This 80-nucleotide RNA from Chiloscyllium punctatum belongs to the Rfam family "Selenocysteine transfer RNA". It scores 62 bits against the family's covariance model.

RNA sequence: GGAAAUGAUUCCUAGUGGUCUAGGGUGCAGGCUUCAAACCUGUAGCUGUUUAGCGACAGAGUGGUUCAAUUCCACCUUCC
Numbered sequence: 001g002g003a004a005a006u007g008a009u010u011c012c013u014a015g016u017g018g019u020c021u022a023g024g025g026u027g028c029a030g031g032c033u034u035c036a037a038a039c040c041u042g043u044a045g046c047u048g049u050u051u052a053g054c055g056a057c058a059g060a061g062u063g064g065u066u067c068a069a070u071u072c073c074a075c076c077u078u079c080c
Base pairs, nucleotide, nucleotide: 001080002079003078007076010025011024012023013022014021015020026044027043028042029041030040031039046059047058048057049056050055061075062074063073064072